[Rfam]
RNA sequence: CAAAUAUAUAAGCCGAAUUUCAAUAGUAAAAUGGGGGAACCAUUUAAUUGGGGUGAAUUUCGCCGGGUAUACCUAAGUAUACACAUUGUGCAGAAAUGCGCAUAGACCGGUGAAUAGGGUGACCUAUGCAUCCGAAUCCGUCAGCUAACCUCGUAGGCUUUGCAUGGGGAACCA
Numbered sequence: 001c002a003a004a005u006a007u008a009u010a011a012g013c014c015g016a017a018u019u020u021c022a023a024u025a026g027u028a029a030a031a032u033g034g035g036g037g038a039a040c041c042a043u044u045u046a047a048u049u050g051g052g053g054u055g056a057a058u059u060u061c062g063c064c065g066g067g068u069a070u071a072c073c074u075a076a077g078u079a080u081a082c083a084c085a086u087u088g089u090g091c092a093g094a095a096a097u098g099c100g101c102a103u104a105g106a107c108c109g110g111u112g113a114a115u116a117g118g119g120u121g122a123c124c125u126a127u128g129c130a131u132c133c134g135a136a137u138c139c140g141u142c143a144g145c146u147a148a149c150c151u152c153g154u155a156g157g158c159u160u161u162g163c164a165u166g167g168g169g170a171a172c173c174a
Stems, first nucleotide, its partner, number of pairs: 011159004018030003031154006041050002051139003059114008117133004

Rfam assigns this 174-nucleotide sequence from Paenibacillus larvae to the family "c-di-AMP riboswitch aptamer (ydaO/yuaA leader)". Gene Ontology terms of the family: regulation of gene expression and cyclic-di-AMP binding.